[Rfam]
RNA sequence: AUAACAUUUACGGGGGCCAUAGCAGAAGCAUUCGUAUUGUGACCCCUGUUAGAUAAUACCUAUGAAUUCUGCU
Dot-bracket structure: ............[[[[.[..((((((((((.......)))].]]]]...(((.(...).)))....)))))))
A member of the RNA family "Mammalian CPEB3 ribozyme" from Alligator sinensis, 73 nucleotides long. The mammalian CPEB3 ribozyme is a self cleaving RNA located in the second intron of the CPEB3 gene which belongs to a family of genes regulating messenger RNA polyadenylation. This ribozyme is highly conserved and found only in mammals. The CPEB3 ribozyme is structurally and biochemically related to the human hepatitis delta virus (HDV) ribozyme and the HDV ribozyme is proposed to have arisen from the human transcriptome. Lineage of the source: Eukaryota > Metazoa > Sauropsida > Alligatorinae > Alligator.